[Rfam]
RNA sequence: GGCUGUGCGUCCACACUCACUGGAUCUGCAGCAUCCAAUGCUGACCCUCUGCAGCAGGGUUUACAAGUGGACACACAGUC
Numbered sequence: 001g002g003c004u005g006u007g008c009g010u011c012c013a014c015a016c017u018c019a020c021u022g023g024a025u026c027u028g029c030a031g032c033a034u035c036c037a038a039u040g041c042u043g044a045c046c047c048u049c050u051g052c053a054g055c056a057g058g059g060u061u062u063a064c065a066a067g068u069g070g071a072c073a074c075a076c077a078g079u080c
Stems, first nucleotide, its partner, number of pairs: 001080007009072005021037005044060005